Annotation:
The record is a 67-nucleotide RNA from Acinetobacter brisouii, which matches "int-alpA RNA" in Rfam. Lineage of the source: Bacteria > Pseudomonadota > Gammaproteobacteria > Acinetobacter > Acinetobacter brisouii. By type it is a small RNA. From the family's description: Acidobacteria (1 example), Planctomycetes (1 example), Proteobacteria.
RNA sequence: GCUAAGCCUAGCCUGACGGGGCGAAAGUCGGACACCCAAUCCGAUUGGCUUAGCAGUUUAUUUGGGG
Numbered sequence: 001g002c003u004a005a006g007c008c009u010a011g012c013c014u015g016a017c018g019g020g021g022c023g024a025a026a027g028u029c030g031g032a033c034a035c036c037c038a039a040u041c042c043g044a045u046u047g048g049c050u051u052a053g054c055a056g057u058u059u060a061u062u063u064g065g066g067g
Stems, first nucleotide, its partner, number of pairs: 001054008011022004028044004035067003039063001